[Rfam]
RNA: 7SK RNA
RNA sequence: GAAGUGAGGGCAAUCUGGCUGUGAAAUCUGAUAUGCCACUGAUCGCACCGUUUGAUUUGACUGGUCUGGCUAGCUUAGGUGAGUAUCCCCUUUCUUCCUCAGCAUUCCAUUCACACACUCCAGUGUGUUCCUCCUGGAGCUGUGAGCUUGGUUAAUGAGGAGAGCCUCCCCAACAGACAUGGUAUUGUUCACUGGUCAAGGGUGUGUGGUAGCUGCGCCACCCUGCUGGAAGCUCUAAGUAAGCGCAAAGUCCAUUUGUAGAAGACAGUAGGGUAGUCCAACAUCCAAUAGUAAAGACACAUCCAAAUGAGAAGCUCCAUGCAGCAUUCUGCAAGU
Numbered sequence: 001g002a003a004g005u006g007a008g009g010g011c012a013a014u015c016u017g018g019c020u021g022u023g024a025a026a027u028c029u030g031a032u033a034u035g036c037c038a039c040u041g042a043u044c045g046c047a048c049c050g051u052u053u054g055a056u057u058u059g060a061c062u063g064g065u066c067u068g069g070c071u072a073g074c075u076u077a078g079g080u081g082a083g084u085a086u087c088c089c090c091u092u093u094c095u096u097c098c099u100c101a102g103c104a105u106u107c108c109a110u111u112c113a114c115a116c117a118c119u120c121c122a123g124u125g126u127g128u129u130c131c132u133c134c135u136g137g138a139g140c141u142g143u144g145a146g147c148u149u150g151g152u153u154a155a156u157g158a159g160g161a162g163a164g165c166c167u168c169c170c171c172a173a174c175a176g177a178c179a180u181g182g183u184a185u186u187g188u189u190c191a192c193u194g195g196u197c198a199a200g201g202g203u204g205u206g207u208g209g210u211a212g213c214u215g216c217g218c219c220a221c222c223c224u225g226c227u228g229g230a231a232g233c234u235c236u237a238a239g240u241a242a243g244c245g246c247a248a249a250g251u252c253c254a255u256u257u258g259u260a261g262a263a264g265a266c267a268g269u270a271g272g273g274u275a276g277u278c279c280a281a282c283a284u285c286c287a288a289u290a291g292u293a294a295a296g297a298c299a300c301a302u303c304c305a306a307a308u309g310a311g312a313a314g315c316u317c318c319a320u321g322c323a324g325c326a327u328u329c330u331g332c333a334a335g336u
Base pairs, nucleotide, nucleotide: 001107002106005101006100007099008098009097010096012093013092017090018089023087024086026084027083029081030080032078034073036069037068038067041066042065043064044063045061128182129181132177133176134151135150136149137148139147140146152173153172159169160168161167212282214280218276221273222272223271224270225269226268233264234263236261239259240258241257242256243255306336309332311330313328314325315324316323